[Rfam]
RNA sequence: UGCGACACCCAUCAAAGAAGUAGUCCCCCACCCAGGAGCUACUUUACCAUACUUCGAAUUC
Numbered sequence: 001u002g003c004g005a006c007a008c009c010c011a012u013c014a015a016a017g018a019a020g021u022a023g024u025c026c027c028c029c030a031c032c033c034a035g036g037a038g039c040u041a042c043u044u045u046a047c048c049a050u051a052c053u054u055c056g057a058a059u060u061c
Stems, first nucleotide, its partner, number of pairs: 017045008026036002
The family of this 61-nucleotide RNA from Capsicum baccatum is "Plastid-psbN 5UTR RNA". From the family's description: Plastid psbN is a non-coding RNA (ncRNA) recognised in plastids. It was reported as a conserved 11 stem-loop in the prime untranslated region (5UTR) of psbN genes. It has been reported that the motif is retained in a subset of mature transcripts in barley, which can suggests a possible role in transcript alternative 5 prime processing. By type it is a cis-regulatory element. Taxonomically the source falls in Capsicum (Eukaryota, Streptophytina, Tracheophyta, Euphyllophyta). For this family Rfam cites "Retrograde signaling in plants: A critical review focusing on the GUN pathway and beyond" (Richter et al., Plant Commun, 2023).